[Rfam]
RNA sequence: UCGAAGCUCCAUCUACAAAUGGAUAAGAUCCCAGUCUAGUCUAUAGGAGGUUUUGAAAAGAAAGGAGCAAUAGCACCAUCUUGAUAAAACAAGAAAAUUGUUAUUGCUCCUUUCUU
Numbered sequence: 001u002c003g004a005a006g007c008u009c010c011a012u013c014u015a016c017a018a019a020u021g022g023a024u025a026a027g028a029u030c031c032c033a034g035u036c037u038a039g040u041c042u043a044u045a046g047g048a049g050g051u052u053u054u055g056a057a058a059a060g061a062a063a064g065g066a067g068c069a070a071u072a073g074c075a076c077c078a079u080c081u082u083g084a085u086a087a088a089a090c091a092a093g094a095a096a097a098u099u100g101u102u103a104u105u106g107c108u109c110c111u112u113u114c115u116u
Stems, first nucleotide, its partner, number of pairs: 008023005061113013075099001079094004

This 116-nucleotide RNA sequence from Solanum violaceum belongs to the Rfam family "Plastid-psbA-1 3UTR RNA". For this family Rfam cites "Retrograde signaling in plants: A critical review focusing on the GUN pathway and beyond" (Richter et al., Plant Commun, 2023). Rfam's curators write: Plastid psbA-1 is a non-coding RNA (ncRNA) present in plastids. It was identified in inverted repeat sequences in the 3 prime untranslate region (3UTR) of photosystem II quinone-binding protein (psbA). The family is grouped with related families in Rfam's "Plastid-psbA 3UTR RNA clan". The base pairs follow the family's consensus structure, which was predicted with LocARNA.